[Rfam]
RNA sequence: UUGAGUAAGUGGAGAAGUGGUCUCUUCACUUUGUUAUAAUUAGUGAGAUUCAACUCCUCCAACUUAUUUUU
Number, nucleotide and partner (000 for none) at each position: 001u000002u000003g000004a000005g000006u000007a065008a064009g063010u061011g060012g059013a058014g057015a000016a000017g055018u053019g000020g000021u000022c000023u048024c047025u000026u046027c045028a044029c043030u042031u000032u000033g000034u000035u000036a000037u000038a000039a000040u000041u000042a030043g029044u028045g027046a026047g024048a023049u000050u000051c000052a000053a018054c000055u017056c000057c014058u013059c012060c011061a010062a000063c009064u008065u007066a000067u000068u000069u000070u000071u000
About this RNA
The record is a 71-nucleotide RNA sequence from Ignelater luminosus, which matches "mir-1175 microRNA precursor family" in Rfam. The source organism's lineage runs through Eukaryota, Endopterygota, Elateriformia, Elateridae and Ignelater. The match comes from Rfam's covariance-model search (74 bits). The family has 11 seed sequences and 181 matches in Rfam 15.1.